[Rfam]
RNA sequence: GUUGCUUCAUAAUGGUGAACGAUCUCUUUGAAAUUGUGAGAUAUGUUCAAGUUUCCGAAGCAUAGAUUAAAAAAUAUGGUCAGUUUUAAACAGUGUGGUGUCUUUUUGUUUUGUGGCAUCAUGCUACCUGUCUCCUGCCACAUUU
Numbered sequence: 001g002u003u004g005c006u007u008c009a010u011a012a013u014g015g016u017g018a019a020c021g022a023u024c025u026c027u028u029u030g031a032a033a034u035u036g037u038g039a040g041a042u043a044u045g046u047u048c049a050a051g052u053u054u055c056c057g058a059a060g061c062a063u064a065g066a067u068u069a070a071a072a073a074a075u076a077u078g079g080u081c082a083g084u085u086u087u088a089a090a091c092a093g094u095g096u097g098g099u100g101u102c103u104u105u106u107u108g109u110u111u112u113g114u115g116g117c118a119u120c121a122u123g124c125u126a127c128c129u130g131u132c133u134c135c136u137g138c139c140a141c142a143u144u145u
Stems, first nucleotide, its partner, number of pairs: 003062006016049005022042004079139001081137003092125003096121005
About this RNA: A member of the RNA family "small nucleolar RNA snoR137" from Striga hermonthica, 145 nucleotides long. Taxonomically the source falls in Striga (Eukaryota, Viridiplantae, Embryophyta, Gunneridae). For this family Rfam cites "Mining small RNA sequencing data: a new approach to identify small nucleolar RNAs in Arabidopsis" (Chen and Wu, Nucleic Acids Res, 2009). By type it is an H/ACA-box small nucleolar RNA. It scores 106 bits against the family's covariance model.